A member of the RNA family "mir-242_2 microRNA precursor family" from Lottia gigantea, 76 nucleotides long. The match comes from Rfam's covariance-model search (58 bits). Taxonomically the source falls in Lottia (Eukaryota, Opisthokonta, Bilateria, Protostomia). Gene Ontology terms of the family: miRNA-mediated post-transcriptional gene silencing and RISC complex. The base pairs follow the family's consensus structure, which was predicted with RNAalifold.
[Rfam]
RNA sequence: AGAUUGUGGUAUUGCGUAGGUAUUGUGCACAGUAAUUAUAUAGACUGUGUAUUCUACCUAGGCAUUAUCAUAGUCU
Numbered sequence: 001a002g003a004u005u006g007u008g009g010u011a012u013u014g015c016g017u018a019g020g021u022a023u024u025g026u027g028c029a030c031a032g033u034a035a036u037u038a039u040a041u042a043g044a045c046u047g048u049g050u051a052u053u054c055u056a057c058c059u060a061g062g063c064a065u066u067a068u069c070a071u072a073g074u075c076u
Base pairs, nucleotide, nucleotide: 003074004073005072006071007070009068010067013064014063015062017060019058020057022055025052026051027050028049029048030047031046032045033044
Dot-bracket structure: ..(((((.((..(((.(.((.(..(((((((((..........)))))))))..).)).).)))..)).)))))..